[Rfam]
RNA sequence: UGAAAUCUCUUAAUAGACACUGGGCCUUCAAUAAGACCCUGCGUAACAAUUUUUGGGAACCUUCGUGAGAACGAAGGUUG
Numbered sequence: 001u002g003a004a005a006u007c008u009c010u011u012a013a014u015a016g017a018c019a020c021u022g023g024g025c026c027u028u029c030a031a032u033a034a035g036a037c038c039c040u041g042c043g044u045a046a047c048a049a050u051u052u053u054u055g056g057g058a059a060c061c062u063u064c065g066u067g068a069g070a071a072c073g074a075a076g077g078u079u080g
Base pairs, nucleotide, nucleotide: 022039023038024037026035027034028033058079059078060077061076062075063074064073065072066071
RNA: SmY spliceosomal RNA